[Rfam]
Nucleotides: 099
Stems, first nucleotide, its partner, number of pairs: 003097003010087010020076003026056002029054003034049001040093005060073004
Number, partner (000 for none) and nucleotide at each position: 001000g002000u003097u004096g005095g006000g007000g008000u009000a010087g011086a012085a013084c014083a015082u016081a017080a018079c019078g020076c021075g022074u023000u024000a025000a026056g027055u028000g029054c030053c031052a032000u033000u034049g035000g036000a037000a038000c039000g040093g041092a042091a043090u044089g045000u046000g047000g048000a049034c050000u051000u052031u053030g054029g055027a056026c057000g058000a059000a060073a061072a062071g063070g064000c065000g066000u067000u068000u069000a070063u071062c072061u073060u074022g075021c076020g077000a078019u079018g080017u081016u082015a083014u084013g085012u086011u087010c088000a089044c090043a091042u092041u093040c094000g095005c096004c097003a098000c099000a
THF (Tetrahydrofolate) riboswitch aptamer: a 99-nucleotide sequence from Philodulcilactobacillus myokonensis. On this family, see Ames et al., Chem Biol 2010: "A eubacterial riboswitch class that senses the coenzyme tetrahydrofolate". About the family: Tetrahydrofolate (THF) riboswitch was first reported for Ames et al. as an RNA motif in 5' untranslated (5'-UTR)regions of folate transport and biosynthesis genes in Firmicutes genomes.